[Rfam]
RNA: Purine riboswitch aptamer
RNA sequence: AAAAUGAAGCCUUUUGACCUUCGUAUAUCCUCGAUAAUAUGGUUCGAGAGUCUCUACCGGGAUGCCGUGAAUGUCCUGACUAUGAAGGCAGAUUUAGCGUAU
Numbered sequence: 001a002a003a004a005u006g007a008a009g010c011c012u013u014u015u016g017a018c019c020u021u022c023g024u025a026u027a028u029c030c031u032c033g034a035u036a037a038u039a040u041g042g043u044u045c046g047a048g049a050g051u052c053u054c055u056a057c058c059g060g061g062a063u064g065c066c067g068u069g070a071a072u073g074u075c076c077u078g079a080c081u082a083u084g085a086a087g088g089c090a091g092a093u094u095u096a097g098c099g100u101a102u
Stems, first nucleotide, its partner, number of pairs: 018088008030048005058078007